RNA: sul1 RNA
RNA sequence: GCCGGACCCCGCUCAUGCAGGGUGGCUCGGCCCGGCGCCUAUCCCCGGGAUAACC
Numbered sequence: 001g002c003c004g005g006a007c008c009c010c011g012c013u014c015a016u017g018c019a020g021g022g023u024g025g026c027u028c029g030g031c032c033c034g035g036c037g038c039c040u041a042u043c044c045c046c047g048g049g050a051u052a053a054c055c
Stems, first nucleotide, its partner, number of pairs: 006023004012017001031049005